[Rfam]
Shown here is a 196-nucleotide RNA sequence from Pseudomonas cavernae, a member of the family "RgsA sRNA".
It is annotated as a small RNA.
RNA sequence: CAGUAGCGGUUCGGGUAUUCCAAAUCUGUUUAAAAAACGCACAGAAAGUAGCUGGACGAUCGGUAAUCUUCGCCAAUACUCAAAGUACUGGCGUGUGGCAUCUCCCCCCAAGUGCCCCGCCAGGCAAGGUACCGUGGACUGCGUACCUUGAUUUACUCCUAAUGGUCUUGACCCGGAUUCAUCCCCCAGAGUCCGG
Number, nucleotide and partner (000 for none) at each position: 001c000002a000003g000004u000005a000006g000007c000008g000009g000010u000011u000012c000013g000014g000015g000016u000017a000018u000019u000020c000021c000022a000023a000024a000025u000026c000027u000028g000029u000030u000031u000032a000033a000034a000035a000036a000037a000038c000039g167040c000041a000042c164043a163044g000045a000046a000047a000048g000049u000050a000051g000052c000053u000054g000055g000056a000057c000058g000059a000060u000061c000062g000063g000064u000065a000066a000067u000068c000069u000070u000071c000072g000073c000074c000075a000076a000077u000078a000079c000080u000081c000082a000083a000084a000085g000086u000087a000088c123089u122090g121091g000092c000093g000094u119095g118096u000097g116098g000099c114100a113101u112102c000103u000104c000105c000106c000107c000108c000109c000110a000111a000112g101113u100114g099115c000116c097117c000118c095119g094120c000121c090122a089123g088124g000125c150126a149127a148128g147129g146130u145131a144132c143133c141134g000135u000136g000137g000138a000139c000140u000141g133142c000143g132144u131145a130146c129147c128148u127149u126150g125151a000152u000153u000154u000155a000156c000157u000158c000159c000160u000161a000162a000163u043164g042165g000166u000167c039168u000169u000170g000171a000172c000173c196174c195175g194176g193177a000178u191179u190180c189181a000182u000183c000184c000185c000186c000187c000188a000189g180190a179191g178192u000193c176194c175195g174196g173
This small RNA (sRNA) was computationally identified in the genome of the opportunistic pathogen Pseudomonas aeruginosa and its expression verified by northern blot analysis. A reference for the family is Livny et al. (2006), "Identification of 17 Pseudomonas aeruginosa sRNAs and prediction of sRNA-encoding genes in 10 diverse pathogens using the bioinformatic tool sRNAPredict2", Nucleic Acids Res.